[Rfam]
RNA sequence: UAUUGGUCCCCUCGCGACGAUAGAUCGUGAACCCCGUCAGGCCCGGAAGGGAGCAGCGGUAGCGAUCGAUUCGGGCGCGAGGUAAGGCUUUUAGAG
Numbered sequence: 001u002a003u004u005g006g007u008c009c010c011c012u013c014g015c016g017a018c019g020a021u022a023g024a025u026c027g028u029g030a031a032c033c034c035c036g037u038c039a040g041g042c043c044c045g046g047a048a049g050g051g052a053g054c055a056g057c058g059g060u061a062g063c064g065a066u067c068g069a070u071u072c073g074g075g076c077g078c079g080a081g082g083u084a085a086g087g088c089u090u091u092u093a094g095a096g
Stems, first nucleotide, its partner, number of pairs: 005089004010082005015075001018073003023067006034059004042051003
Bacterial small signal recognition particle RNA: a 96-nucleotide RNA from Legionella impletisoli. The literature on the family includes a 2003 paper in Nucleic Acids Res by Rosenblad et al., "SRPDB: Signal Recognition Particle Database". NCBI's taxonomy places the organism under Bacteria, Pseudomonadati, Legionellales, Legionellaceae, Legionella. Clan: SRP clan. Rfam describes the family as follows. The signal recognition particle (SRP) is a universally conserved ribonucleoprotein involved in the co-translational targeting of proteins to membranes.